[Rfam]
This 53-nucleotide sequence from Tessaracoccus aquimaris belongs to the Rfam family "msiK RNA". A search with the family's covariance model found it, with a score of 55 bits. The family's consensus secondary structure is taken from published work. The family's RNA type in Rfam is cis-regulatory element.
Nucleotides: 053
Base pairs, nucleotide, nucleotide: 006048009045010044011043012042024041025040026039027038028037029036
Number, partner (000 for none) and nucleotide at each position: 001000g002000g003000u004000u005000c006048c007000a008000a009045u010044c011043c012042a013000c014000u015000a016000c017000g018000g019000a020000u021000c022000g023000u024041c025040g026039g027038g028037c029036a030000c031000g032000u033000a034000c035000c036029u037028g038027c039026c040025c041024g042012u043011g044010g045009a046000a047000a048006g049000g050000a051000a052000a053000u